RNA sequence: GGCGGCGUAGCUCAGUUGGUCAGAGCACGCGGUUCAUACCCGCGGUGUCGGGGGUUCGAAGCCCUCCGCCGCCA
Numbered sequence: 001g002g003c004g005g006c007g008u009a010g011c012u013c014a015g016u017u018g019g020u021c022a023g024a025g026c027a028c029g030c031g032g033u034u035c036a037u038a039c040c041c042g043c044g045g046u047g048u049c050g051g052g053g054g055u056u057c058g059a060a061g062c063c064c065u066c067c068g069c070c071g072c073c074a
Base pairs, nucleotide, nucleotide: 001073002072003071004070005069006068007067010026011025012024013023028044029043030042031041032040050066051065052064053063054062

This 74-nucleotide sequence from bacterium HR32 belongs to the Rfam family "tRNA". The match comes from Rfam's covariance-model search (65 bits). Rfam describes the family as follows. Transfer RNA (tRNA) molecules are approximately 80 nucleotides in length. The base pairs follow the family's consensus structure, which is taken from published work.